[Rfam]
Record summary:
A member of the RNA family "Group II catalytic intron D1-D4-5" from Helicobacter sp. MIT 99-10781, 254 nucleotides long. The source organism's lineage runs through Bacteria, Campylobacterota, Epsilonproteobacteria, Helicobacteraceae and Helicobacter. The family has 139 seed sequences and 720 matches in Rfam 15.1. From the family's description: Group II introns are found in rRNA, tRNA and mRNA of organelles in fungi, plants and protists, and also in mRNA in bacteria. Rfam links the family to the GO term Group II intron splicing. The base pairs follow the family's consensus structure.

RNA sequence: UCUAACUAUUAUUCCGAAAGUUCAAAUGAUAGGGUAACGCCUUGAAGGGACUUACUUGAUACUCCACUAUGCGUAAAGUAUGUGUUUAUACUUUGGGUGUGAAGCGUGGUAAAGACGGCUGAGAAAUACCGAAAUAAGUUAAGUAGUUUCACUUUAAAGUUUUGAAUUAGAAAUAAUUCUAUAAUAGAGAUUAUUUAACUUCAUCGCAAUGUAGCUAGAGGUAGCUAAGUAUUGAUAGGUCGGAGUGCUAUAAA
Number, nucleotide and partner (000 for none) at each position: 001u000002c000003u000004a000005a000006c000007u000008a000009u000010u000011a000012u000013u000014c000015c000016g000017a000018a053019a052020g051021u050022u049023c048024a000025a000026a000027u000028g000029a000030u000031a043032g042033g041034g040035u000036a000037a000038c000039g000040c034041c033042u032043u031044g000045a000046a000047g000048g023049g022050a021051c020052u019053u018054a246055c245056u244057u243058g000059a000060u000061a000062c000063u000064c109065c108066a107067c106068u101069a100070u099071g098072c097073g000074u095075a094076a093077a092078g091079u090080a089081u088082g000083u000084g000085u000086u000087u000088a081089u080090a079091c078092u077093u076094u075095g074096g000097g072098u071099g070100u069101g068102a000103a000104g000105c000106g067107u066108g065109g064110u000111a000112a000113a000114g000115a000116c242117g241118g240119c239120u238121g000122a000123g000124a233125a000126a232127u231128a230129c229130c206131g205132a204133a000134a000135u000136a000137a201138g000139u000140u000141a000142a000143g000144u000145a000146g000147u000148u000149u000150c000151a000152c000153u000154u000155u000156a000157a000158a000159g000160u000161u000162u000163u000164g000165a000166a000167u000168u000169a000170g000171a000172a000173a000174u000175a000176a000177u000178u000179c000180u000181a000182u000183a000184a000185u000186a000187g000188a000189g000190a000191u000192u000193a000194u000195u000196u000197a000198a000199c000200u000201u137202c000203a000204u132205c131206g130207c000208a000209a000210u228211g000212u227213a226214g225215c224216u223217a222218g000219a000220g000221g000222u217223a216224g215225c214226u213227a212228a210229g129230u128231a127232u126233u124234g000235a000236u000237a000238g120239g119240u118241c117242g116243g057244a056245g055246u054247g000248c000249u000250a000251u000252a000253a000254a000